[Rfam]
RNA sequence: GGGCCCGUAGCUCAGGUGGUUAGAGCGCGGUCCUGAUAAGACCGAGGUCGAUAGUUCGAGUCUAUCCGGGCCCA
Numbered sequence: 001g002g003g004c005c006c007g008u009a010g011c012u013c014a015g016g017u018g019g020u021u022a023g024a025g026c027g028c029g030g031u032c033c034u035g036a037u038a039a040g041a042c043c044g045a046g047g048u049c050g051a052u053a054g055u056u057c058g059a060g061u062c063u064a065u066c067c068g069g070g071c072c073c074a
Stems, first nucleotide, its partner, number of pairs: 001073007010026004028044005050066005
Dot-bracket structure: (((((((..((((.........)))).(((((.......))))).....(((((.......)))))))))))).